The record is a 251-nucleotide sequence from Coleofasciculus chthonoplastes, which matches "HNH endonuclease-associated RNA and ORF (HEARO) RNA" in Rfam. The source organism's lineage runs through Bacteria, Bacillati, Coleofasciculaceae, Coleofasciculus and Coleofasciculus chthonoplastes. Rfam 15.1 lists 952 matches to the family in 249 species.
RNA sequence: GUCAACUACCGCACACCAACCCUUAGGGGUAUGGUGUGGGCUUGAAAAAGCCUGUUGACCAGACGGCUCACCUCGACUUCGCUCGGUGAGCGGAGCCGAACCGAGCAGCCGUUAAGACUAAGAGUUAACGUUCGUACCAAGGGAUGCGUGCCAGUUCCUUGCUCUACAACUGGGUAAUUAAACAGGUCAUUCGGAAAAGCCAGUGUUACUCAGAAAGUACCGGGUCUUAACACCGUCGAGGCAAACUUUAC
Dot-bracket structure: ((((((.(.(..((......((....)).......))..)(((....)))..)))))))..(((((((......................................))..((((((......(.((.......((..(((((((([..[[[[.))))))))....))..(((((((((...((.((.(.(....)...))).)))))))))))........)).))))))).)))))..]]]]...]....